Background: Shown here is a 206-nucleotide RNA, a member of the family "raiA RNA". Rfam's curators put it in the seed alignment. It is annotated as a riboswitch. The base pairs follow the family's consensus structure, which is taken from published work.
RNA sequence: AUUUCGCAGGUCUGUGGUUGCAAGUCGAUGCCAGUCGCAGGCGAAACGAUCCACGUAAGGAGGGCAAAAGAUCCUCUGAGCACGGUGCGGUUUAGAAGUAAGUCCUGCCGGGAAAACCGAGAGGGUCAGUAGUGAGAGGCGGACAGCCGGGUAGCGAACGCUCCAGCAGGCGGGUGUGGGGGCGAAAACCAGGUCAGCUGCGAAAU
Numbered sequence: 001a002u003u004u005c006g007c008a009g010g011u012c013u014g015u016g017g018u019u020g021c022a023a024g025u026c027g028a029u030g031c032c033a034g035u036c037g038c039a040g041g042c043g044a045a046a047c048g049a050u051c052c053a054c055g056u057a058a059g060g061a062g063g064g065c066a067a068a069a070g071a072u073c074c075u076c077u078g079a080g081c082a083c084g085g086u087g088c089g090g091u092u093u094a095g096a097a098g099u100a101a102g103u104c105c106u107g108c109c110g111g112g113a114a115a116a117c118c119g120a121g122a123g124g125g126u127c128a129g130u131a132g133u134g135a136g137a138g139g140c141g142g143a144c145a146g147c148c149g150g151g152u153a154g155c156g157a158a159c160g161c162u163c164c165a166g167c168a169g170g171c172g173g174g175u176g177u178g179g180g181g182g183c184g185a186a187a188a189c190c191a192g193g194u195c196a197g198c199u200g201c202g203a204a205a206u
Base pairs, nucleotide, nucleotide: 001206002205003204004203005202006201007200008199009198012197013196014195015191016190017189018188019187028177029176030175031041033092034091035090036089037088038087039086050085051084058077059076060075062073063072083184104170105169106168107167108166109119110118111117123163124162125161126160132155133154138148139147140146